The record is a 351-nucleotide RNA sequence from Parambassis ranga, which matches "Vertebrate telomerase RNA" in Rfam. Telomerase is a ribonucleoprotein reverse transcriptase that synthesises telomeric DNA. Telomerase RNAs differ greatly in sequence and structure between vertebrates, ciliates and yeasts, but they share a 5' pseudoknot structure close to the template sequence. Vertebrate telomerase RNAs have a 3' H/ACA snoRNA-like domain.
Nucleotides: 351
Base pairs, nucleotide, nucleotide: 007161008160009159010158011157012156013155014154041097042096043095044094045093056088057087058086059085060084061083062082063081072149073148074147075145076144077143078141079140080139166278167277168276169275170274171273172263173262174261175260176259177258178257183251184250185249186248187247188246189245202223203222204221205220206219208218209217210216211215225237226236227235228234291343292342293341294340296337297336298335299334302331303330304329306327307326310323311322312321313320
Number, partner (000 for none) and nucleotide at each position: 001000u002000c003000u004000u005000u006000c007161g008160c009159g010158g011157g012156g013155u014154g015000u016000c017000u018000c019000u020000u021000c022000u023000a024000a025000c026000c027000c028000u029000a030000a031000a032000u033000g034000u035000g036000g037000g038000u039000c040000g041097c042096c043095u044094c045093c046000u047000g048000u049000a050000c051000u052000u053000a054000a055000c056088g057087u058086g059085u060084g061083c062082u063081g064000u065000u066000u067000u068000u069000c070000u071000u072149u073148c074147u075145g076144g077143c078141u079140u080139u081063c082062a083061g084060c085059a086058c087057a088056c089000u090000a091000c092000g093045g094044g095043a096042g097041g098000u099000a100000u101000u102000c103000u104000g105000a106000a107000g108000u109000a110000g111000c112000g113000g114000u115000g116000g117000a118000a119000a120000u121000g122000u123000c124000u125000u126000c127000g128000a129000a130000u131000c132000a133000a134000a135000a136000a137000a138000a139080a140079a141078a142000a143077g144076c145075c146000a147074a148073g149072a150000u151000a152000a153000u154014c155013a156012c157011c158010c159009c160008g161007u162000c163000a164000a165000g166278c167277u168276c169275g170274g171273u172263u173262u174261c175260c176259u177258g178257c179000c180000u181000g182000g183251a184250a185249c186248a187247c188246c189245g190000u191000g192000a193000a194000u195000g196000u197000c198000u199000u200000g201000c202223c203222g204221u205220g206219g207000u208218c209217a210216g211215c212000u213000u214000g215211g216210c217209u218208g219206u220205c221204g222203c223202g224000a225237a226236g227235a228234g229000u230000u231000u232000g233000u234228c235227u236226c237225u238000g239000u240000u241000g242000c243000u244000c245189c246188g247187g248186u249185g250184u251183u252000u253000u254000c255000a256000u257178g258177c259176a260175g261174g262173a263172a264000u265000u266000c267000u268000g269000u270000u271000c272000u273171g274170c275169u276168g277167a278166g279000c280000a281000g282000a283000u284000u285000a286000a287000a288000a289000c290000u291343g292342a293341g294340c295000a296337g297336g298335g299334u300000g301000a302331c303330c304329c305000u306327g307326c308000c309000g310323g311322a312321c313320c314000u315000g316000c317000a318000g319000u320313g321312g322311u323310u324000c325000g326307g327306u328000u329304g330303g331302g332000a333000a334299a335298c336297c337296u338000a339000c340294g341293c342292u343291c344000a345000a346000a347000c348000a349000a350000a351000c

The family has 37 seed sequences and 523 matches in Rfam 15.1. On this family, see Chen et al., Cell 2000: "Secondary structure of vertebrate telomerase RNA". It scores 116 bits against the family's covariance model. The organism belongs to Parambassis, within Eukaryota. Rfam links the family to the GO terms telomerase activity, telomerase catalytic core complex and telomere maintenance via telomerase. The family's RNA type in Rfam is non-coding RNA gene.